[Rfam]
RNA sequence: AUCACGUCAGGAGAUGACAUGCCUCCUUUAACCGCCGUUUCGGCUGAUGAUGUCUACGUUAUC
Numbered sequence: 001a002u003c004a005c006g007u008c009a010g011g012a013g014a015u016g017a018c019a020u021g022c023c024u025c026c027u028u029u030a031a032c033c034g035c036c037g038u039u040u041c042g043g044c045u046g047a048u049g050a051u052g053u054c055u056a057c058g059u060u061a062u063c
Base pairs, nucleotide, nucleotide: 010026011025012024013023016054017053018052019051020050034044035043036042
Source information: A member of the RNA family "Fluoride riboswitch aptamer (crcB RNA motif)" from Acerihabitans arboris, 63 nucleotides long. The match comes from Rfam's covariance-model search (54 bits). Rfam links the family to the GO terms response to fluoride and positive regulation of gene expression.